This 113-nucleotide RNA sequence from Geomicrobium sp. JCM 19038 belongs to the Rfam family "ylbH leader".
It scores 72 bits against the family's covariance model.
The literature on the family includes a 2004 paper in Proc Natl Acad Sci U S A by Barrick et al., "New RNA motifs suggest an expanded scope for riboswitches in bacterial genetic control".
Its family is annotated with regulation of gene expression in the Gene Ontology.
Rfam classes the family as a cis-regulatory leader.
About the family: This family is a putative regulatory RNA structure that is found upstream of the ylbH gene in B. subtilis and related low GC Gram-positive bacteria.
[Rfam]
RNA sequence: ACAAAAAAAGCCGCGCGCCCAUAUGGACACGCGGAGCCUGUUGUUAUCGACAGGCAAUGGGAGAGGAGAAACCGGAGGAAGCGCUUAUGGGGAAACGUAAGCGUUCUCCGCGG
Numbered sequence: 001a002c003a004a005a006a007a008a009a010g011c012c013g014c015g016c017g018c019c020c021a022u023a024u025g026g027a028c029a030c031g032c033g034g035a036g037c038c039u040g041u042u043g044u045u046a047u048c049g050a051c052a053g054g055c056a057a058u059g060g061g062a063g064a065g066g067a068g069a070a071a072c073c074g075g076a077g078g079a080a081g082c083g084c085u086u087a088u089g090g091g092g093a094a095a096c097g098u099a100a101g102c103g104u105u106c107u108c109c110g111c112g113g
Stems, first nucleotide, its partner, number of pairs: 011034005017028001019026001037061007073110004078106003083102005